[Rfam]
RNA: Archaeal large subunit ribosomal RNA, nucleotides 556 to 651
Organism: Candidatus Nanobsidianus stetteri
RNA sequence: GGUAGGGCUAGUUAAGCACCUUAUCUGGGAAAAUCUGGUGACAGAUGAGUACCAGAUAGGGUGCUAGCUAGUUCUACCGUGAGUUUUGAAGAACUU
Numbered sequence: 001g002g003u004a005g006g007g008c009u010a011g012u013u014a015a016g017c018a019c020c021u022u023a024u025c026u027g028g029g030a031a032a033a034u035c036u037g038g039u040g041a042c043a044g045a046u047g048a049g050u051a052c053c054a055g056a057u058a059g060g061g062u063g064c065u066a067g068c069u070a071g072u073u074c075u076a077c078c079g080u081g082a083g084u085u086u087u088g089a090a091g092a093a094c095u096u
Stems, first nucleotide, its partner, number of pairs: 001078010019061007028052001033046005081096004